[Rfam]
RNA sequence: GCGCCUGCUCCGGGGAGCCCUGGGCCGCACAACGCGGCACGGGCUGAGACAUGGCGAUGAAGCCGUGGACCCGCUGAACUUGAUCCGGUUCGUACCGGCGUAAGAAGAGCCUGCCCCUCGCGC
Numbered sequence: 001g002c003g004c005c006u007g008c009u010c011c012g013g014g015g016a017g018c019c020c021u022g023g024g025c026c027g028c029a030c031a032a033c034g035c036g037g038c039a040c041g042g043g044c045u046g047a048g049a050c051a052u053g054g055c056g057a058u059g060a061a062g063c064c065g066u067g068g069a070c071c072c073g074c075u076g077a078a079c080u081u082g083a084u085c086c087g088g089u090u091c092g093u094a095c096c097g098g099c100g101u102a103a104g105a106a107g108a109g110c111c112u113g114c115c116c117c118u119c120g121c122g123c
Stems, first nucleotide, its partner, number of pairs: 007110004011073004017044004051066005079104004085098004
RNA: TPP riboswitch aptamer (THI element)
Organism: Roseateles depolymerans